[Rfam]
RNA sequence: CUUGAUGGAGCCCAGCCACAGCGGCCGGUCGUCGGGACGGUCCUGUCCGUACGUGGCCAGCAGGGCCUGCGCCUC
Number, nucleotide and partner (000 for none) at each position: 001c000002u000003u000004g000005a000006u000007g000008g000009a000010g000011c000012c000013c000014a000015g025016c024017c023018a000019c000020a000021g000022c000023g017024g016025c015026c000027g000028g000029u000030c000031g000032u000033c069034g000035g000036g000037a000038c065039g000040g000041u000042c000043c060044u059045g058046u000047c056048c055049g054050u000051a000052c000053g000054u049055g048056g047057c000058c045059a044060g043061c000062a000063g000064g000065g038066c000067c000068u000069g033070c000071g000072c000073c000074u000075c000

Background
A member of the RNA family "ASpks TB sRNA" from Streptomyces capitiformicae, 75 nucleotides long. Rfam 15.1 lists 9,052 matches to the family in 683 species. The organism belongs to Streptomyces, within Bacteria.